[Rfam]
RNA sequence: AGGUCAUUUCAAAGAGGGAAUUUGGGGGGCUGAAGCCAAGAGCUCUUAACACUGUGACCAAAUAUUGAAAUUCUCUAUAGGAUGUAAUGGUCACUCAAUAGUGCUGUGGUUUCCUGAGGAGAUAUGAGA
Numbered sequence: 001a002g003g004u005c006a007u008u009u010c011a012a013a014g015a016g017g018g019a020a021u022u023u024g025g026g027g028g029g030c031u032g033a034a035g036c037c038a039a040g041a042g043c044u045c046u047u048a049a050c051a052c053u054g055u056g057a058c059c060a061a062a063u064a065u066u067g068a069a070a071u072u073c074u075c076u077a078u079a080g081g082a083u084g085u086a087a088u089g090g091u092c093a094c095u096c097a098a099u100a101g102u103g104c105u106g107u108g109g110u111u112u113c114c115u116g117a118g119g120a121g122a123u124a125u126g127a128g129a
Base pairs, nucleotide, nucleotide: 002059003058004057005056006055007054014047015046016045017044018043021040023039026037027036072122073121074120075119076118079115080114081113082112087107088106089105090104092103093102094101095100
The record is a 129-nucleotide sequence from Canis lupus, which matches "Small nucleolar RNA SNORA25" in Rfam.
The family's RNA type in Rfam is H/ACA-box small nucleolar RNA.
ACA25 is a member of the H/ACA class of snoRNA that guide the sites of modification of uridines to pseudouridines.
NCBI's taxonomy places the organism under Eukaryota, Tetrapoda, Boreoeutheria, Canis, Canis lupus.